RNA sequence: CCAGUUCCUGAAACAAGUAAUCAAGAAUAGGCCGUGCAUGUGUUAACCAGCCUAUCCUGGAUUACUUGAACCAGGCAGAGG
Numbered sequence: 001c002c003a004g005u006u007c008c009u010g011a012a013a014c015a016a017g018u019a020a021u022c023a024a025g026a027a028u029a030g031g032c033c034g035u036g037c038a039u040g041u042g043u044u045a046a047c048c049a050g051c052c053u054a055u056c057c058u059g060g061a062u063u064a065c066u067u068g069a070a071c072c073a074g075g076c077a078g079a080g081g
Base pairs, nucleotide, nucleotide: 002080005077007075008074009073010072014068015067016066017065018064019063020062021061022060024058025057027055028054029053030052031051032050
RNA: mir-26 microRNA precursor family
Organism: Coregonus sp. 'balchen'